Record summary
The record is a 54-nucleotide RNA sequence from Salvelinus namaycush, which matches "UnaL2 LINE 3' element" in Rfam. The family's consensus secondary structure is taken from published work. Taxonomically the source falls in Salvelinus (Eukaryota, Vertebrata, Actinopteri, Salmoninae).
[Rfam]
Nucleotides: 054
Base pairs, nucleotide, nucleotide: 013043014041015040016039020036021035022034023033024032025031
Number, partner (000 for none) and nucleotide at each position: 001000u002000c003000a004000g005000u006000c007000u008000a009000u010000a011000a012000c013043u014041g015040u016039a017000a018000g019000u020036c021035g022034c023033u024032c025031u026000g027000g028000a029000u030000a031025a032024g033023a034022g035021u036020g037000c038000c039016u040015g041014c042000u043013a044000a045000a046000u047000g048000a049000c050000u051000a052000a053000a054000a
Overview: It is annotated as a cis-regulatory element.